[Rfam]
RNA sequence: UGGAUGUGUCAGGUAGGCAGUACAUUGCUAGCUGGCUGUUAUAAUUUCAACAGUGGCUAGUUGUGCUCCCCUCUGUUGCAUUCA
Number, nucleotide and partner (000 for none) at each position: 001u084002g083003g082004a081005u080006g079007u078008g077009u000010c075011a074012g073013g072014u000015a000016g069017g068018c000019a067020g066021u065022a064023c063024a062025u000026u000027g061028c060029u059030a058031g057032c056033u055034g054035g000036c000037u000038g000039u000040u000041a000042u000043a047044a000045u000046u000047u043048c000049a000050a000051c000052a000053g000054u034055g033056g032057c031058u030059a029060g028061u027062u024063g023064u022065g021066c020067u019068c017069c016070c000071c000072u013073c012074u011075g010076u000077u008078g007079c006080a005081u004082u003083c002084a001
Description:
A member of the RNA family "mir-449 microRNA precursor family" from Pteropus alecto, 84 nucleotides long. For this family Rfam cites "Small RNA expression and strain specificity in the rat" (Linsen et al., BMC Genomics, 2010). Rfam 15.1 lists 325 matches to the family in 192 species. The source organism's lineage runs through Eukaryota, Craniata, Tetrapoda, Mammalia and Pteropus.